The family of this 85-nucleotide RNA sequence from Geothermobacter ehrlichii is "L20-Deltaproteobacteria ribosomal protein leader". The match comes from Rfam's covariance-model search (50 bits). Pairs were carried over by alignment from the consensus structure, which is taken from published work. By type it is a cis-regulatory leader. The literature on the family includes a 2020 paper in BMC Microbiol by Eckert and Weinberg, "Discovery of 20 novel ribosomal leader candidates in bacteria and archaea". Lineage of the source: Bacteria > Desulfuromonadia > Desulfuromonadales > Geothermobacteraceae > Geothermobacter.
Nucleotides: 085
Base pairs, nucleotide, nucleotide: 003041004040005039007038008037010035011034012033013032014031015030016029017028
Number, partner (000 for none) and nucleotide at each position: 001000g002000g003041c004040a005039g006000u007038g008037a009000a010035c011034u012033g013032a014031g015030g016029g017028g018000a019000a020000a021000g022000g023000u024000c025000u026000c027000c028017u029016c030015c031014u032013u033012c034011a035010g036000a037008u038007c039005c040004u041003g042000u043000c044000c045000g046000g047000a048000u049000c050000g051000u052000g053000g054000u055000u056000u057000u058000g059000u060000g061000c062000c063000a064000c065000g066000a067000u068000c069000a070000a071000u072000u073000u074000u075000u076000u077000u078000u079000a080000a081000a082000g083000g084000a085000g